[Rfam]
RNA sequence: UCGGUUCCGGUUCACGGUUGCUAUUGGGGUAAUCGACCCGGAUCC
Numbered sequence: 001u002c003g004g005u006u007c008c009g010g011u012u013c014a015c016g017g018u019u020g021c022u023a024u025u026g027g028g029g030u031a032a033u034c035g036a037c038c039c040g041g042a043u044c045c
Stems, first nucleotide, its partner, number of pairs: 003045002007041004015035008
Record summary:
L31-Actinobacteria ribosomal protein leader: a 45-nucleotide RNA sequence from Galliscardovia ingluviei. It scores 39 bits against the family's covariance model. It is annotated as a cis-regulatory leader. The organism belongs to Galliscardovia, within Bacteria.